[Rfam]
RNA sequence: CAUUCCUUGUACAAAACUAAGGAAUUGGUGGCUGCCAGGUCCAGUAGAGAUAACAACAGACUGGCAGCCACCAAUUCCUUUGUUUUGUACAAGGAAUGC
Numbered sequence: 001c002a003u004u005c006c007u008u009g010u011a012c013a014a015a016a017c018u019a020a021g022g023a024a025u026u027g028g029u030g031g032c033u034g035c036c037a038g039g040u041c042c043a044g045u046a047g048a049g050a051u052a053a054c055a056a057c058a059g060a061c062u063g064g065c066a067g068c069c070a071c072c073a074a075u076u077c078c079u080u081u082g083u084u085u086u087g088u089a090c091a092a093g094g095a096a097u098g099c
Stems, first nucleotide, its partner, number of pairs: 003096010015084003019080005025074003029070010
A member of the RNA family "mir-239 microRNA precursor family" from Acipenser ruthenus, 99 nucleotides long. A search with the family's covariance model found it, with a score of 50 bits.